Rfam assigns this 103-nucleotide RNA from Macleaya cordata to the family "Small nucleolar RNA Z266". Rfam links the family to the GO terms nucleolus and RNA processing. Lineage of the source: Eukaryota > Viridiplantae > Spermatophyta > Magnoliopsida > Macleaya. A reference for the family is Chen et al. (2003), "The high diversity of snoRNAs in plants: identification and comparative study of 120 snoRNA genes from Oryza sativa", Nucleic Acids Res. The base pairs follow the family's consensus structure, which was predicted with PFOLD. The match comes from Rfam's covariance-model search (59 bits).
RNA sequence: UGUAGCAAAAGGAUGAUGAUUCAAUUAGAUGUGUGAAAGAGAGAAUUCUCUCUAUAAUGAACUUGAUCUUUUUGAGUCAGUUUCACAGACUGACUUUGCUACC
Numbered sequence: 001u002g003u004a005g006c007a008a009a010a011g012g013a014u015g016a017u018g019a020u021u022c023a024a025u026u027a028g029a030u031g032u033g034u035g036a037a038a039g040a041g042a043g044a045a046u047u048c049u050c051u052c053u054a055u056a057a058u059g060a061a062c063u064u065g066a067u068c069u070u071u072u073u074g075a076g077u078c079a080g081u082u083u084c085a086c087a088g089a090c091u092g093a094c095u096u097u098g099c100u101a102c103c
Stems, first nucleotide, its partner, number of pairs: 002102007010095002